RNA sequence: UCACAAUGAUGAAGAACUGUACUUCCUUUACAUUCGCAGUUUCCACGGUAGGGGUACGCUUACGAACCCAUCGUUAGUACUCUCGGUGACCGCUCUUUUAUAGAGACCUUCCUAGGAUGUCUGAGUGA
Numbered sequence: 001u002c003a004c005a006a007u008g009a010u011g012a013a014g015a016a017c018u019g020u021a022c023u024u025c026c027u028u029u030a031c032a033u034u035c036g037c038a039g040u041u042u043c044c045a046c047g048g049u050a051g052g053g054g055u056a057c058g059c060u061u062a063c064g065a066a067c068c069c070a071u072c073g074u075u076a077g078u079a080c081u082c083u084c085g086g087u088g089a090c091c092g093c094u095c096u097u098u099u100a101u102a103g104a105g106a107c108c109u110u111c112c113u114a115g116g117a118u119g120u121c122u123g124a125g126u127g128a
Stems, first nucleotide, its partner, number of pairs: 001128004052091002055088003

Description:
Rfam assigns this 128-nucleotide RNA from Saccharomyces arboricola to the family "Small nucleolar RNA SNORD14". Rfam describes the family as follows. U14 small nucleolar RNA (U14 snoRNA) is required for early cleavages of eukaryotic precursor rRNAs. A reference for the family is Samarsky et al. (1996), "An essential domain in Saccharomyces cerevisiae U14 snoRNA is absent in vertebrates, but conserved in other yeasts", Nucleic Acids Res. The match comes from Rfam's covariance-model search (67 bits). The base pairs follow the family's consensus structure, which was predicted with PFOLD. By type it is a C/D-box small nucleolar RNA.